Description
A member of the RNA family "c-di-AMP riboswitch aptamer (ydaO/yuaA leader)" from Kocuria dechangensis, 187 nucleotides long. Its family is annotated with regulation of gene expression and cyclic-di-AMP binding in the Gene Ontology. From the family's description: This family represents a conserved RNA structure found upstream of the ydaO and yuaA genes in Bacillus subtilis and related genes in other bacteria. The ydaO/yuaA element is thought to act as a genetic 'off' switch for the ydaO and yuaA genes in its native state.
RNA sequence: CGUGGCACAUCGCCGAAUUCUGCCGGUGCCCGGGGCCCCCCUGAUCACAGUGCUCGGCAGAAGCGGGGGAACCAUCACCGGUCCCCACCCCAGGACCUAGGGGUUAAGCCGCCAGGGCCCCCACCCUGCGGCCGGGUGUCUCCCACCCGCAUCCGACAGCUCACCUCGCAGGCAAGCGGGAGGACAU
Numbered sequence: 001c002g003u004g005g006c007a008c009a010u011c012g013c014c015g016a017a018u019u020c021u022g023c024c025g026g027u028g029c030c031c032g033g034g035g036c037c038c039c040c041c042u043g044a045u046c047a048c049a050g051u052g053c054u055c056g057g058c059a060g061a062a063g064c065g066g067g068g069g070a071a072c073c074a075u076c077a078c079c080g081g082u083c084c085c086c087a088c089c090c091c092a093g094g095a096c097c098u099a100g101g102g103g104u105u106a107a108g109c110c111g112c113c114a115g116g117g118c119c120c121c122c123a124c125c126c127u128g129c130g131g132c133c134g135g136g137u138g139u140c141u142c143c144c145a146c147c148c149g150c151a152u153c154c155g156a157c158a159g160c161u162c163a164c165c166u167c168g169c170a171g172g173c174a175a176g177c178g179g180g181a182g183g184a185c186a187u
Base pairs, nucleotide, nucleotide: 012173013172014171018062019061020060021059022058023057024056025055026054063169064168065167066166067165068164073100101154102153103152109131110130111129112128134148135147136146137145
Notes: A search with the family's covariance model found it, with a score of 53 bits.